[Rfam]
RNA sequence: GAAUGACGGGUGAGAAACCCGUCCGCCGAAUAACCAAGGGUUCCAGGGUCAAGCUAAUCUUCCCUGGGUAAGUCGGGACCUAAGGCGAGGCCGACAGGCGUAGUCGAUGGACAACGGGUUGAUAUUCCCGUACCGGCGUAUGCACGAUCCUGCCGAGGCGAAUAAUGCUAAGAACGGAAGCUGACGGAUGUCUUCGGACUGAAACUCGGCGACCCUUUGACCCAAGUUCGUAUUAGGCAAGCUGCGGAGGGACGCAAGAAGGUAGCCCACCCACGGUGUUGGAUCCGUGGUCAAGUGCGUAGGGCGAAGGCUAGGUAAAUCCGGUCUUCACGUGCCUGAAACAUGACGUGUCUGCAGCCUUCGGGCUGUGGUGUGGGUGAUCCUAUGCUGCCUAGAAAAUCUUCGUGAGCGAGUUCAUGCGCUGCCCGUACCCCAAACCGACACAGGUGGUUGGGUAGAGAAUACCAAGGCGAU
Numbered sequence: 001g002a003a004u005g006a007c008g009g010g011u012g013a014g015a016a017a018c019c020c021g022u023c024c025g026c027c028g029a030a031u032a033a034c035c036a037a038g039g040g041u042u043c044c045a046g047g048g049u050c051a052a053g054c055u056a057a058u059c060u061u062c063c064c065u066g067g068g069u070a071a072g073u074c075g076g077g078a079c080c081u082a083a084g085g086c087g088a089g090g091c092c093g094a095c096a097g098g099c100g101u102a103g104u105c106g107a108u109g110g111a112c113a114a115c116g117g118g119u120u121g122a123u124a125u126u127c128c129c130g131u132a133c134c135g136g137c138g139u140a141u142g143c144a145c146g147a148u149c150c151u152g153c154c155g156a157g158g159c160g161a162a163u164a165a166u167g168c169u170a171a172g173a174a175c176g177g178a179a180g181c182u183g184a185c186g187g188a189u190g191u192c193u194u195c196g197g198a199c200u201g202a203a204a205c206u207c208g209g210c211g212a213c214c215c216u217u218u219g220a221c222c223c224a225a226g227u228u229c230g231u232a233u234u235a236g237g238c239a240a241g242c243u244g245c246g247g248a249g250g251g252a253c254g255c256a257a258g259a260a261g262g263u264a265g266c267c268c269a270c271c272c273a274c275g276g277u278g279u280u281g282g283a284u285c286c287g288u289g290g291u292c293a294a295g296u297g298c299g300u301a302g303g304g305c306g307a308a309g310g311c312u313a314g315g316u317a318a319a320u321c322c323g324g325u326c327u328u329c330a331c332g333u334g335c336c337u338g339a340a341a342c343a344u345g346a347c348g349u350g351u352c353u354g355c356a357g358c359c360u361u362c363g364g365g366c367u368g369u370g371g372u373g374u375g376g377g378u379g380a381u382c383c384u385a386u387g388c389u390g391c392c393u394a395g396a397a398a399a400u401c402u403u404c405g406u407g408a409g410c411g412a413g414u415u416c417a418u419g420c421g422c423u424g425c426c427c428g429u430a431c432c433c434c435a436a437a438c439c440g441a442c443a444c445a446g447g448u449g450g451u452u453g454g455g456u457a458g459a460g461a462a463u464a465c466c467a468a469g470g471c472g473a474u
Stems, first nucleotide, its partner, number of pairs: 005023006024472004032452004038432002043067006052060002074428004079110002084105003088101001090099003114131005134424009144414001241410002245405006254391003260384003265378005271290006292348001295344003302337003306329007314322002351371002355368005438447002454466004

Rfam assigns this 474-nucleotide part of an RNA from Propioniferax innocua to the family "Bacterial large subunit ribosomal RNA".
The match comes from Rfam's covariance-model search (2812 bits).
Its family is annotated with structural constituent of ribosome and ribosome in the Gene Ontology.